6S / SsrS RNA: a 183-nucleotide sequence from Leptolyngbya iicbica. The literature on the family includes a 2000 paper in Cell by Wassarman and Storz, "6S RNA regulates E. coli RNA polymerase activity". The match comes from Rfam's covariance-model search (89 bits). The family's RNA type in Rfam is non-coding RNA gene. Pairs were carried over by alignment from the consensus structure, which is taken from published work.

[Rfam]
RNA sequence: GAUUCACUACGACGUUGGUGACUGCCAACACUGUUUGUCGAUCUAUGCUUUGUCUCUAAGGGAAUCGAGAAGUGCCGGUGGCAGUAAACCGAGCUUGUACUCGGAAACUUAAAAUCGGUGCCAGCAUUCCCACCUGGUUCUUCCAGGUCGGAAACUGAGGUAAGACGGCGUCGCGGUGAAUAA
Numbered sequence: 001g002a003u004u005c006a007c008u009a010c011g012a013c014g015u016u017g018g019u020g021a022c023u024g025c026c027a028a029c030a031c032u033g034u035u036u037g038u039c040g041a042u043c044u045a046u047g048c049u050u051u052g053u054c055u056c057u058a059a060g061g062g063a064a065u066c067g068a069g070a071a072g073u074g075c076c077g078g079u080g081g082c083a084g085u086a087a088a089c090c091g092a093g094c095u096u097g098u099a100c101u102c103g104g105a106a107a108c109u110u111a112a113a114a115u116c117g118g119u120g121c122c123a124g125c126a127u128u129c130c131c132a133c134c135u136g137g138u139u140c141u142u143c144c145a146g147g148u149c150g151g152a153a154a155c156u157g158a159g160g161u162a163a164g165a166c167g168g169c170g171u172c173g174c175g176g177u178g179a180a181u182a183a
Stems, first nucleotide, its partner, number of pairs: 002181007010173006018166002033155004038151006060131003064127002069122001073120007084108002089104005
The source organism's lineage runs through Bacteria, Cyanobacteriota, Cyanophyceae, Leptolyngbyales and Leptolyngbya iicbica.